[Rfam]
RNA: mir-4922 microRNA precursor family
Nucleotides: 058
Base pairs, nucleotide, nucleotide: 001056002055003054004053005052006051007050008049009048010047011046012045014043015042017041018040019039020038022036023035
Number, partner (000 for none) and nucleotide at each position: 001056g002055u003054g004053a005052g006051u007050a008049g009048g010047a011046c012045a013000a014043u015042u016000c017041a018040u019039a020038u021000u022036g023035a024000a025000a026000a027000u028000a029000u030000u031000g032000u033000c034000u035023u036022u037000u038020a039019u040018a041017u042015a043014a044000c045012u046011g047010u048009u049008c050007u051006a052005u053004u054003c055002a056001c057000a058000g